[Rfam]
RNA sequence: GGCGGUAGCUCUGACAACGGAAUCCCAAAAGCAGCUGUUGUGAAAAUGUUCAGCUGCAGUUGGGACCCGUUCACGGAUCUAUUGCC
Numbered sequence: 001g002g003c004g005g006u007a008g009c010u011c012u013g014a015c016a017a018c019g020g021a022a023u024c025c026c027a028a029a030a031g032c033a034g035c036u037g038u039u040g041u042g043a044a045a046a047u048g049u050u051c052a053g054c055u056g057c058a059g060u061u062g063g064g065a066c067c068c069g070u071u072c073a074c075g076g077a078u079c080u081a082u083u084g085c086c
Stems, first nucleotide, its partner, number of pairs: 010077004017070004023064003027061002031057007
The family of this 86-nucleotide RNA sequence from Xenopus tropicalis is "mir-191 microRNA precursor family". The organism belongs to Silurana, within Eukaryota. Its family is annotated with miRNA-mediated post-transcriptional gene silencing and RISC complex in the Gene Ontology. For this family Rfam cites "Identification of many microRNAs that copurify with polyribosomes in mammalian neurons" (Kim et al., Proc Natl Acad Sci U S A, 2004). Rfam 15.1 lists 621 matches to the family in 455 species.